[Rfam]
RNA sequence: CAGCGAUGAUGAGCGAAGUAGAGUGAACUGGUAUUGCCGAGACUGCGCGUCUCUGCUCUGACCAGGGCAUGAUCACGGAAUCUUCUCUCUGAGCGU
Numbered sequence: 001c002a003g004c005g006a007u008g009a010u011g012a013g014c015g016a017a018g019u020a021g022a023g024u025g026a027a028c029u030g031g032u033a034u035u036g037c038c039g040a041g042a043c044u045g046c047g048c049g050u051c052u053c054u055g056c057u058c059u060g061a062c063c064a065g066g067g068c069a070u071g072a073u074c075a076c077g078g079a080a081u082c083u084u085c086u087c088u089c090u091g092a093g094c095g096u
Stems, first nucleotide, its partner, number of pairs: 001095001003094002036056002039053001

Z30 small nucleolar RNA: a 96-nucleotide RNA sequence from Elachura formosa.
The match comes from Rfam's covariance-model search (81 bits).
On this family, see Galardi et al., Mol Cell Biol 2002: "Purified box C/D snoRNPs are able to reproduce site-specific 2'-O-methylation of target RNA in vitro".
The organism belongs to Elachura, within Eukaryota.
The family has 20 seed sequences and 802 matches in Rfam 15.1.